[Rfam]
RNA sequence: AGGCUAAUGAUGAUAAUUUAAAUUUAUCUUAGCGGAUUUCAUUGAGAUUUCAUAAUCAAUGAUCUAUUUGUUACACACACUGAGGCCU
Dot-bracket structure: (((((..............................................................................)))))
RNA: Small nucleolar RNA R11/Z151